RNA: RprA RNA
RNA sequence: ACGGUUAUAAAUCAACACAUUGAUUUAUAAGCAUGGAAAUCCCCUGAGUGAAACAACGAAUUGCUGUGUGUAGUCUAUGCACGUCUCCUACGAUGGGCUUAUUUUAGA
Numbered sequence: 001a002c003g004g005u006u007a008u009a010a011a012u013c014a015a016c017a018c019a020u021u022g023a024u025u026u027a028u029a030a031g032c033a034u035g036g037a038a039a040u041c042c043c044c045u046g047a048g049u050g051a052a053a054c055a056a057c058g059a060a061u062u063g064c065u066g067u068g069u070g071u072a073g074u075c076u077a078u079g080c081a082c083g084u085c086u087c088c089u090a091c092g093a094u095g096g097g098c099u100u101a102u103u104u105u106a107g108a
Base pairs, nucleotide, nucleotide: 002022003021004020005019032046033045035043036042062070063069064068079098080097082095083094084093085092